[Rfam]
RNA sequence: AUUGCUUCAUUCUAUUUCAAUCCUGUCACACUGAUCUAUUUUAGUGUGUGGCAUUGUCUUGAAGUGAAGCUACAACUUGUUCCCCUCGCUAUCCGGUGAUACUUCUAUAGUGCAUUUGGACGUUGGGAAACUACAUUU
Numbered sequence: 001a002u003u004g005c006u007u008c009a010u011u012c013u014a015u016u017u018c019a020a021u022c023c024u025g026u027c028a029c030a031c032u033g034a035u036c037u038a039u040u041u042u043a044g045u046g047u048g049u050g051g052c053a054u055u056g057u058c059u060u061g062a063a064g065u066g067a068a069g070c071u072a073c074a075a076c077u078u079g080u081u082c083c084c085c086u087c088g089c090u091a092u093c094c095g096g097u098g099a100u101a102c103u104u105c106u107a108u109a110g111u112g113c114a115u116u117u118g119g120a121c122g123u124u125g126g127g128a129a130a131c132u133a134c135a136u137u138u
Stems, first nucleotide, its partner, number of pairs: 002072001004070002008066004013061001018056002025052003028047005079131003083127003087122002092120005100109002
RNA: Small nucleolar RNA snoR136
Organism: Sesamum indicum